This 109-nucleotide RNA from Planococcus sp. PAMC 21323 belongs to the Rfam family "RNA Staph. aureus E (RoxS)". It was shown to be regulated by the presence of nitric oxide (NO). In Bacillus subtilis it controls expression of genes with functions related to oxidative stress and oxidation-reduction reactions and it was renamed RoxS (for related to oxidative stress).
[Rfam]
RNA sequence: GUGAAAUAAAUCACAUACAAACAUACACCCCUUUGUUUGAGCGUGAACAUUUCUCCCAUCCCCUUUGUGUAAUAUAGAAAGACGCCUUCCGGACGUGGAAGGCGUCUUU
Numbered sequence: 001g002u003g004a005a006a007u008a009a010a011u012c013a014c015a016u017a018c019a020a021a022c023a024u025a026c027a028c029c030c031c032u033u034u035g036u037u038u039g040a041g042c043g044u045g046a047a048c049a050u051u052u053c054u055c056c057c058a059u060c061c062c063c064u065u066u067g068u069g070u071a072a073u074a075u076a077g078a079a080a081g082a083c084g085c086c087u088u089c090c091g092g093a094c095g096u097g098g099a100a101g102g103c104g105u106c107u108u109u
Stems, first nucleotide, its partner, number of pairs: 003053005011046004018039006070076001081106011